[Rfam]
Nucleotides: 053
Stems, first nucleotide, its partner, number of pairs: 001053008010027007030045005
Number, partner (000 for none) and nucleotide at each position: 001053c002052g003051g004050u005049u006048g007047a008046g009000a010027g011026a012025u013024u014023u015022g016021c017000c018000u019000u020000a021016g022015c023014a024013g025012a026011u027010c028000g029000u030045u031044g032043c033042a034041g035000c036000g037000c038000u039000u040000g041034c042033u043032g044031c045030g046008c047007u048006c049005g050004g051003c052002c053001g